[Rfam]
A member of the RNA family "mir-7398 microRNA precursor family" from Phascolarctos cinereus, 60 nucleotides long. Lineage of the source: Eukaryota > Chordata > Sarcopterygii > Metatheria > Phascolarctos. Gene Ontology terms of the family: RISC complex and miRNA-mediated post-transcriptional gene silencing. It scores 56 bits against the family's covariance model.
RNA sequence: AGUGUUGAGGUUGGGAACAUGCCAUGCUCUCUCUCAGGUAAAUUCUCAGCCUCUCACAGU
Numbered sequence: 001a002g003u004g005u006u007g008a009g010g011u012u013g014g015g016a017a018c019a020u021g022c023c024a025u026g027c028u029c030u031c032u033c034u035c036a037g038g039u040a041a042a043u044u045c046u047c048a049g050c051c052u053c054u055c056a057c058a059g060u
Base pairs, nucleotide, nucleotide: 002057003056004055007053008052009051010050011049012048013047014046015045016044017043021039022038023037